[Rfam]
RNA sequence: AGAUGACCGAUUUCUCUUGGUGUUGAGAGUGAAACUUUAGCCUAGCACCAUUUGAAAUCGGUUAUCU
Numbered sequence: 001a002g003a004u005g006a007c008c009g010a011u012u013u014c015u016c017u018u019g020g021u022g023u024u025g026a027g028a029g030u031g032a033a034a035c036u037u038u039a040g041c042c043u044a045g046c047a048c049c050a051u052u053u054g055a056a057a058u059c060g061g062u063u064a065u066c067u
Stems, first nucleotide, its partner, number of pairs: 001067004005062001007061008018050005026043002
Dot-bracket structure: (((((.((((((((...(((((...((..............))..)))))...))))))))).))))